[Rfam]
RNA sequence: UAGUCCGUAAGGAUAGGUGCGGAGGAUGUGAAGGCCAAAUCCGGAACAGGCGGCAUCAAACCAUGUUGGCUGGCAGAGUCGGAUAACCCUGCAAGAAAAGGGGAAGUCCCCUACCACGAAUGGCUCUGCAAGUUAGGAGGACUGGGUUCGGAGGAAAGACGAUCAC
Numbered sequence: 001u002a003g004u005c006c007g008u009a010a011g012g013a014u015a016g017g018u019g020c021g022g023a024g025g026a027u028g029u030g031a032a033g034g035c036c037a038a039a040u041c042c043g044g045a046a047c048a049g050g051c052g053g054c055a056u057c058a059a060a061c062c063a064u065g066u067u068g069g070c071u072g073g074c075a076g077a078g079u080c081g082g083a084u085a086a087c088c089c090u091g092c093a094a095g096a097a098a099a100g101g102g103g104a105a106g107u108c109c110c111c112u113a114c115c116a117c118g119a120a121u122g123g124c125u126c127u128g129c130a131a132g133u134u135a136g137g138a139g140g141a142c143u144g145g146g147u148u149c150g151g152a153g154g155a156a157a158g159a160c161g162a163u164c165a166c
Base pairs, nucleotide, nucleotide: 001016003014004013005012006011028166029165030164031163035158040152041151042150043149044148047144048143049142061140062139064137069133070132071131073129074128075127076126077125078124079123081109082108083107084106087102088101089100090099

Shown here is a 166-nucleotide RNA sequence from Effusibacillus dendaii, a member of the family "Group II catalytic intron D1-D4-3".